[Rfam]
About this RNA:
Shown here is a 68-nucleotide RNA from Gossypium raimondii, a member of the family "small nucleolar RNA snoR114". Pairs were carried over by alignment from the consensus structure, which was predicted with RNAalifold. Rfam links the family to the GO terms nucleolus and RNA processing. It is annotated as a C/D-box small nucleolar RNA. The literature on the family includes a 2009 paper in Nucleic Acids Res by Chen and Wu, "Mining small RNA sequencing data: a new approach to identify small nucleolar RNAs in Arabidopsis".
RNA sequence: GAGCAAUGAAGAAAACUGCGCACCCUUGUGAGGAUAGGGUUCAUCUCUUUCUCUGAUCUAACUCGCUC
Numbered sequence: 001g002a003g004c005a006a007u008g009a010a011g012a013a014a015a016c017u018g019c020g021c022a023c024c025c026u027u028g029u030g031a032g033g034a035u036a037g038g039g040u041u042c043a044u045c046u047c048u049u050u051c052u053c054u055g056a057u058c059u060a061a062c063u064c065g066c067u068c
Stems, first nucleotide, its partner, number of pairs: 001068004